[Rfam]
RNA sequence: ACAGCAGUAAUGCCUAGGGAGAGAAAGCGGUGUAGCAAAGUCAACAAGCCUACGAACAGAAACUGGAUACGAGGCUAAAUGGUGGAUGAGAUUGCCAAACAAAUCGAAGUCCAAAAGGUAAACGUAAAACCAAGACAGUAAAUUUAGAGGUUGUGUGAUGAAAGAAUUGUAUC
Number, nucleotide and partner (000 for none) at each position: 001a015002c000003a000004g013005c012006a011007g000008u000009a000010a000011u006012g005013c004014c000015u001016a000017g000018g000019g000020a000021g000022a000023g000024a000025a000026a000027g173028c000029g000030g170031u169032g000033u000034a000035g000036c164037a000038a000039a000040g159041u158042c157043a156044a000045c155046a154047a152048g151049c150050c149051u148052a000053c000054g000055a000056a000057c000058a000059g000060a000061a000062a000063c147064u146065g145066g144067a143068u142069a000070c000071g000072a000073g000074g139075c138076u137077a000078a000079a000080u132081g131082g130083u129084g112085g111086a110087u109088g000089a000090g105091a104092u103093u102094g000095c000096c000097a000098a000099a000100c000101a000102a093103a092104u091105c090106g000107a000108a000109g087110u086111c085112c084113a000114a000115a000116a000117g000118g000119u000120a000121a000122a000123c000124g000125u000126a000127a000128a000129a083130c082131c081132a080133a000134g000135a000136c000137a076138g075139u074140a000141a000142a068143u067144u066145u065146a064147g063148a051149g050150g049151u048152u047153g000154u046155g045156u043157g042158a041159u040160g000161a000162a000163a000164g036165a000166a000167u000168u000169g031170u030171a000172u000173c027
RNA: Group II catalytic intron D1-D4-3